[Rfam]
RNA: Bacteroidales small SRP
RNA sequence: UUUGCAUCGGCAAGUCUUAUACGACCAGCUCCUACUGAACUCCCCCAGGACAGGAAUGUAGCAAGGGUAGGUGGUUGUAGCGGUGCGAUAUAAGUAACUUGCCAUUUU
Numbered sequence: 001u002u003u004g005c006a007u008c009g010g011c012a013a014g015u016c017u018u019a020u021a022c023g024a025c026c027a028g029c030u031c032c033u034a035c036u037g038a039a040c041u042c043c044c045c046c047a048g049g050a051c052a053g054g055a056a057u058g059u060a061g062c063a064a065g066g067g068u069a070g071g072u073g074g075u076u077g078u079a080g081c082g083g084u085g086c087g088a089u090a091u092a093a094g095u096a097a098c099u100u101g102c103c104a105u106u107u108u
Stems, first nucleotide, its partner, number of pairs: 009103007017093005022087002024084002